Rfam assigns this 72-nucleotide RNA from Serilophus lunatus to the family "Small nucleolar RNA SNORD63". NCBI's taxonomy places the organism under Eukaryota, Gnathostomata, Archelosauria, Neoaves, Serilophus. Rfam's curators write: snoRNA U63 is found in both humans and mice. The match comes from Rfam's covariance-model search (54 bits). The family has 23 seed sequences and 795 matches in Rfam 15.1. A reference for the family is Galardi et al. (2002), "Purified box C/D snoRNPs are able to reproduce site-specific 2'-O-methylation of target RNA in vitro", Mol Cell Biol.

RNA sequence: GUGCCAUGAUGUUACCUGUCAACACAUCAUUCUGAGGGAAGAUUGUGUGGACACUUUGUGAGACUGAGCACC
Numbered sequence: 001g002u003g004c005c006a007u008g009a010u011g012u013u014a015c016c017u018g019u020c021a022a023c024a025c026a027u028c029a030u031u032c033u034g035a036g037g038g039a040a041g042a043u044u045g046u047g048u049g050g051a052c053a054c055u056u057u058g059u060g061a062g063a064c065u066g067a068g069c070a071c072c
Base pairs, nucleotide, nucleotide: 001071002070003069004068